[Rfam]
RNA sequence: AUUGCACCCAAACCCCAAAAGACCUUUGUUUCUCCUUAACAAUGAUCUUAUAUUGGGUGCAGACAGUAAAUGGGCCUCGUCGCCUUUCUGGAGCUGUUGAAAGUGCUCCAGAAAGUGAAAUGGUGGGUUCUACAUUC
Numbered sequence: 001a002u003u004g005c006a007c008c009c010a011a012a013c014c015c016c017a018a019a020a021g022a023c024c025u026u027u028g029u030u031u032c033u034c035c036u037u038a039a040c041a042a043u044g045a046u047c048u049u050a051u052a053u054u055g056g057g058u059g060c061a062g063a064c065a066g067u068a069a070a071u072g073g074g075c076c077u078c079g080u081c082g083c084c085u086u087u088c089u090g091g092a093g094c095u096g097u098u099g100a101a102a103g104u105g106c107u108c109c110a111g112a113a114a115g116u117g118a119a120a121u122g123g124u125g126g127g128u129u130c131u132a133c134a135u136u137c
Stems, first nucleotide, its partner, number of pairs: 002062008021047002024044001026042005072130006084115011
Dot-bracket structure: .((((((((...........((.(.(((((.......))))).).)).......)))))))).........((((((......(((((((((((..........))))))))))).........)))))).......